[Rfam]
RNA sequence: AUAAUGAUACUCCUGCCCAGUCACAGCUUGCAGGCAAUGAGGGCAGUUCGGAGAGAACCUCGGAAGGGUUGAAAUGCCCGUGA
Numbered sequence: 001a002u003a004a005u006g007a008u009a010c011u012c013c014u015g016c017c018c019a020g021u022c023a024c025a026g027c028u029u030g031c032a033g034g035c036a037a038u039g040a041g042g043g044c045a046g047u048u049c050g051g052a053g054a055g056a057a058c059c060u061c062g063g064a065a066g067g068g069u070u071g072a073a074a075u076g077c078c079c080g081u082g083a
Stems, first nucleotide, its partner, number of pairs: 012080001013046006047065003051061003066079003
Description
A member of the RNA family "pemK RNA", 83 nucleotides long. Rfam's curators put it in the seed alignment. The family's RNA type in Rfam is cis-regulatory element.